[Rfam]
Molybdenum/Tungsten riboswitch aptamer (Moco RNA motif): a 133-nucleotide RNA from Tenebrionibacter intestinalis. Taxonomically the source falls in Tenebrionibacter (Bacteria, Pseudomonadati, Gammaproteobacteria, Enterobacteriaceae). A search with the family's covariance model found it, with a score of 90 bits. Its family is annotated with tungstate binding, regulation of gene expression and molybdenum ion binding in the Gene Ontology.
RNA sequence: UUAAACAAAACACUCAAGCCUUUACGCCUAAGUCGCACGAUAGGGCGUUCUGGCCGUGGCCUGUGGGUCGCCAGGGUGCAGGAAGAAAUGACUGCAUCUCCCGUAUCUGGAAAGGUGUACAUGGUUUCUCAAC
Numbered sequence: 001u002u003a004a005a006c007a008a009a010a011c012a013c014u015c016a017a018g019c020c021u022u023u024a025c026g027c028c029u030a031a032g033u034c035g036c037a038c039g040a041u042a043g044g045g046c047g048u049u050c051u052g053g054c055c056g057u058g059g060c061c062u063g064u065g066g067g068u069c070g071c072c073a074g075g076g077u078g079c080a081g082g083a084a085g086a087a088a089u090g091a092c093u094g095c096a097u098c099u100c101c102c103g104u105a106u107c108u109g110g111a112a113a114g115g116u117g118u119a120c121a122u123g124g125u126u127u128c129u130c131a132a133c
Base pairs, nucleotide, nucleotide: 003127004126006124010118011117012116013115015114018054019053020052024048025047026046027045028044032041033040034039056071057070058069059068060067074099075098076097077096078095079094080093081092084089100110101109